[Rfam]
RNA: Alphaproteobacterial sRNA ar35
Organism: Phyllobacterium zundukense
RNA sequence: AAGAUGACUGCUGAUCAGCUUCAGGCUGGCUAAAAAUAAUUCGUCUUCGCGGUUUUUGACCACGGAUGUACUGGCACUGAUUGCAGAGAUGAAUUUGAGAAGGUCGGGUUUUCCCGGCCUUUUAUUUU
Numbered sequence: 001a002a003g004a005u006g007a008c009u010g011c012u013g014a015u016c017a018g019c020u021u022c023a024g025g026c027u028g029g030c031u032a033a034a035a036a037u038a039a040u041u042c043g044u045c046u047u048c049g050c051g052g053u054u055u056u057u058g059a060c061c062a063c064g065g066a067u068g069u070a071c072u073g074g075c076a077c078u079g080a081u082u083g084c085a086g087a088g089a090u091g092a093a094u095u096u097g098a099g100a101a102g103g104u105c106g107g108g109u110u111u112u113c114c115c116g117g118c119c120u121u122u123u124a125u126u127u128u
Base pairs, nucleotide, nucleotide: 004037005036016028017027018026019025020024041092042091043090044089045088046087047086051082052081053080054079057076058075060074061073062072093127096124098123099122100121101120102119103118104117105116106115107114